The family of this 356-nucleotide RNA from Paenisporosarcina sp. HGH0030 is "transfer-messenger RNA".
Bacterial tmRNA, also known as 10Sa RNA or SsrA, is named for its dual tRNA and mRNA-like properties.
The family's consensus secondary structure is taken from published work.
The family's RNA type in Rfam is non-coding RNA gene.
The source organism's lineage runs through Bacteria, Bacillota, Bacilli, Caryophanaceae and Paenisporosarcina.
[Rfam]
RNA sequence: GGGGACGUUACGGAUUCGACAGGGAUGGUCUGAGCUUAAGUUGCGCGUCGGAGGGAUCGGCUCCGUAUCAACGUCAUUUUAUAAUAACUGGCAAAAACCAAAACCUAGCAUUCGCAGCGUAAGCUGACAAUGUUGCUUGUCUUGACCAUCGCCCAUGUGGUCCUGUACGAGCUCACUCUUAGUGGGAUACGAUCGUCGGUGCGACUUGAGCCGCCGAGAAGAGACUUUCAAGUUAGCGCACAAGACGCCCGCUUGUCGGCAUAAUGCUGCGCGAAACCUCAAUAGGCAAGAUACACGCGUAGAAGCUUAAGUGUUGGAGUUUCUGGACGCGGGUUCGAUUCCCGCCGUCUCCAUAU
Numbered sequence: 001g002g003g004g005a006c007g008u009u010a011c012g013g014a015u016u017c018g019a020c021a022g023g024g025a026u027g028g029u030c031u032g033a034g035c036u037u038a039a040g041u042u043g044c045g046c047g048u049c050g051g052a053g054g055g056a057u058c059g060g061c062u063c064c065g066u067a068u069c070a071a072c073g074u075c076a077u078u079u080u081a082u083a084a085u086a087a088c089u090g091g092c093a094a095a096a097a098c099c100a101a102a103a104c105c106u107a108g109c110a111u112u113c114g115c116a117g118c119g120u121a122a123g124c125u126g127a128c129a130a131u132g133u134u135g136c137u138u139g140u141c142u143u144g145a146c147c148a149u150c151g152c153c154c155a156u157g158u159g160g161u162c163c164u165g166u167a168c169g170a171g172c173u174c175a176c177u178c179u180u181a182g183u184g185g186g187a188u189a190c191g192a193u194c195g196u197c198g199g200u201g202c203g204a205c206u207u208g209a210g211c212c213g214c215c216g217a218g219a220a221g222a223g224a225c226u227u228u229c230a231a232g233u234u235a236g237c238g239c240a241c242a243a244g245a246c247g248c249c250c251g252c253u254u255g256u257c258g259g260c261a262u263a264a265u266g267c268u269g270c271g272c273g274a275a276a277c278c279u280c281a282a283u284a285g286g287c288a289a290g291a292u293a294c295a296c297g298c299g300u301a302g303a304a305g306c307u308u309a310a311g312u313g314u315u316g317g318a319g320u321u322u323c324u325g326g327a328c329g330c331g332g333g334u335u336c337g338a339u340u341c342c343c344g345c346c347g348u349c350u351c352c353a354u355a356u
Base pairs, nucleotide, nucleotide: 001352002351003350004349005348006347007346020325021324022323023322024321025320026319029316032314034312035311036310037309038308039307040306041305042304044299045298046297047296048295049065050064051063052062053061055075056074057073110131111130112129115126116125117124118123135172136171137170138169139168140167141165144162146160147159148158149157152186153185154184155183156182193217194216195215197213198212199211200210203234204233205232206231207230208229236272237271238270239269240268243265247260248259249258253290254289255287256286257285329345330344331343332342333341